[Rfam]
RNA sequence: AAGCCCUUUUAAAUGUAGUCCUGUGAGGCUGCCAAAGGGUCUUGGCUUUCAUAUGUCAAAUUUGGCAUACGAAAGUGUAGGACUCUUUGUGCACAGGCACAAAGAGUUUUUUUAU
Numbered sequence: 001a002a003g004c005c006c007u008u009u010u011a012a013a014u015g016u017a018g019u020c021c022u023g024u025g026a027g028g029c030u031g032c033c034a035a036a037g038g039g040u041c042u043u044g045g046c047u048u049u050c051a052u053a054u055g056u057c058a059a060a061u062u063u064g065g066c067a068u069a070c071g072a073a074a075g076u077g078u079a080g081g082a083c084u085c086u087u088u089g090u091g092c093a094c095a096g097g098c099a100c101a102a103a104g105a106g107u108u109u110u111u112u113u114a115u
Stems, first nucleotide, its partner, number of pairs: 003040007015032006045076006052069007079110014
This 115-nucleotide RNA from Bacillus anthracis belongs to the Rfam family "PyrR binding site". Gene Ontology terms of the family: pyrimidine nucleobase transport and pyrimidine nucleobase biosynthetic process. Rfam's curators put it in the seed alignment. NCBI's taxonomy places the organism under Bacteria, Bacillati, Bacillota, Bacilli, Bacillus anthracis. The family's consensus secondary structure is taken from published work.